A member of the RNA family "RT-16 RNA", 167 nucleotides long.
RNA sequence: CUUGGAGUUUAUCUUUCCAUGAGGAAGAAAGAUAAAGAAAAGGCUACACGUCAAUUUAUUAGCGCGCUAUUAAGGUUUAUUUUAAGCCAUAAAAUUCAUUUUCAAUAAUUGGUAGUGAAAUACGAAGAUUAAAGAUUAGGUGGCAAUUGAUAAAUUGACUAAUUGGU
Numbered sequence: 001c002u003u004g005g006a007g008u009u010u011a012u013c014u015u016u017c018c019a020u021g022a023g024g025a026a027g028a029a030a031g032a033u034a035a036a037g038a039a040a041a042g043g044c045u046a047c048a049c050g051u052c053a054a055u056u057u058a059u060u061a062g063c064g065c066g067c068u069a070u071u072a073a074g075g076u077u078u079a080u081u082u083u084a085a086g087c088c089a090u091a092a093a094a095u096u097c098a099u100u101u102u103c104a105a106u107a108a109u110u111g112g113u114a115g116u117g118a119a120a121u122a123c124g125a126a127g128a129u130u131a132a133a134g135a136u137u138a139g140g141u142g143g144c145a146a147u148u149g150a151u152a153a154a155u156u157g158a159c160u161a162a163u164u165g166g167u
Base pairs, nucleotide, nucleotide: 001042002041003040008036009035010034011033012032013031014030015029016028017027050159051158052157053156054155055154056153057152058151059150066148068146071143099138102135103134106131107130108129109128110127115123116122